[Rfam]
RNA: Small nucleolar RNA SNORD14
RNA sequence: UGACAAUGCUGCUAAAUUUAAGGCUUGUUUCUCAAAACAUUCGCAGUUGCAAGAGCUUUUGCCUUGCCAGGCUUGAGAGCUGAUGCUGAUAAUUCCUUCCUUGGAUGUCUGAGCCU
Numbered sequence: 001u002g003a004c005a006a007u008g009c010u011g012c013u014a015a016a017u018u019u020a021a022g023g024c025u026u027g028u029u030u031c032u033c034a035a036a037a038c039a040u041u042c043g044c045a046g047u048u049g050c051a052a053g054a055g056c057u058u059u060u061g062c063c064u065u066g067c068c069a070g071g072c073u074u075g076a077g078a079g080c081u082g083a084u085g086c087u088g089a090u091a092a093u094u095c096c097u098u099c100c101u102u103g104g105a106u107g108u109c110u111g112a113g114c115c116u
Base pairs, nucleotide, nucleotide: 002115004113055080056079057078058077059076060075